Rfam assigns this 90-nucleotide sequence from Flavobacterium humi to the family "Flavo-1 RNA".
It is annotated as a small RNA.
Rfam 15.1 lists 7,497 matches to the family in 411 species.
RNA sequence: CCCUAGCCCCGAUAGCAAUGGAAAUCCUGUGGUUGGGCGAUGCGGGAGCAAUCGCGCAAAAACAGAUUGCAAUGGAUAGCGGGAAAUAGC
Numbered sequence: 001c002c003c004u005a006g007c008c009c010c011g012a013u014a015g016c017a018a019u020g021g022a023a024a025u026c027c028u029g030u031g032g033u034u035g036g037g038c039g040a041u042g043c044g045g046g047a048g049c050a051a052u053c054g055c056g057c058a059a060a061a062a063c064a065g066a067u068u069g070c071a072a073u074g075g076a077u078a079g080c081g082g083g084a085a086a087u088a089g090c
Base pairs, nucleotide, nucleotide: 009082010081011080013078014077018073019072023068024067025066026065029063030062033061034060